[Rfam]
RNA sequence: AAAUAUCUUCAGGGCGGGGUGUAAUUCCCCACCGGCGGUAUAGCCCGCGAGCCGCAAGGCAUGAUUCGGUGUAACUCCGAAGCCGACAGUAAAGUCUGGAUGAAAGAAGGUAUAA
Numbered sequence: 001a002a003a004u005a006u007c008u009u010c011a012g013g014g015c016g017g018g019g020u021g022u023a024a025u026u027c028c029c030c031a032c033c034g035g036c037g038g039u040a041u042a043g044c045c046c047g048c049g050a051g052c053c054g055c056a057a058g059g060c061a062u063g064a065u066u067c068g069g070u071g072u073a074a075c076u077c078c079g080a081a082g083c084c085g086a087c088a089g090u091a092a093a094g095u096c097u098g099g100a101u102g103a104a105a106g107a108a109g110g111u112a113u114a115a
Base pairs, nucleotide, nucleotide: 003113004112005111006110007109008108009107010106017029018028019027031095032094033085034084035048036047037046038045043083044082053059065081066080067079068078069077087098088097089096

Rfam assigns this 115-nucleotide RNA sequence from Clostridium tetani to the family "FMN riboswitch aptamer (RFN element)". From the family's description: The RFN element is a highly conserved domain that is found frequently in the 5'-untranslated regions of prokaryotic mRNAs that encode for flavin mononucleotide (FMN) biosynthesis and transport proteins. The base pairs follow the family's consensus structure, which is taken from published work.